[Rfam]
This 54-nucleotide RNA sequence from Albula goreensis belongs to the Rfam family "UnaL2 LINE 3' element".
For this family Rfam cites "Solution structure of an RNA stem-loop derived from the 3' conserved region of eel LINE UnaL2" (Baba et al., RNA, 2004).
Taxonomically the source falls in Albula (Eukaryota, Metazoa, Eumetazoa, Craniata).

RNA sequence: UGCACCUUGUGUUGUAAGUCGCUCUGUAUAAGAGCAUCUGCUAAAUGCCUAUAA
Numbered sequence: 001u002g003c004a005c006c007u008u009g010u011g012u013u014g015u016a017a018g019u020c021g022c023u024c025u026g027u028a029u030a031a032g033a034g035c036a037u038c039u040g041c042u043a044a045a046u047g048c049c050u051a052u053a054a
Stems, first nucleotide, its partner, number of pairs: 013043001014041003021035005
Its family is annotated with transposition, RNA-mediated in the Gene Ontology.
Rfam describes the family as follows. The eel long interspersed element (LINE) UnaL2 and its partner short interspersed element (SINE) share a conserved 3' tail containing a stem-loop that is critical for their retrotransposition.